Rfam assigns this 80-nucleotide sequence from Desulfonema ishimotonii to the family "c-di-GMP-I riboswitch aptamer". Lineage of the source: Bacteria > Desulfobacteria > Desulfobacterales > Desulfococcaceae > Desulfonema. The family's consensus secondary structure is taken from published work.
RNA sequence: UUUCGUAAAAGGCAAACCAACCGUAAGGUAGGGACGCAAAGCUACCGAUUCGAACUUUUUCGGACAGCUGGGUUGCCGGA
Numbered sequence: 001u002u003u004c005g006u007a008a009a010a011g012g013c014a015a016a017c018c019a020a021c022c023g024u025a026a027g028g029u030a031g032g033g034a035c036g037c038a039a040a041g042c043u044a045c046c047g048a049u050u051c052g053a054a055c056u057u058u059u060u061c062g063g064a065c066a067g068c069u070g071g072g073u074u075g076c077c078g079g080a
Base pairs, nucleotide, nucleotide: 012037013036017032018031020029021028022027040074041073042072043071045070047068049064050063051062052061053060054059
Dot-bracket structure: ...........((...((.(((....))).))...))..((((.(.(.((((((....))))))...).)))))......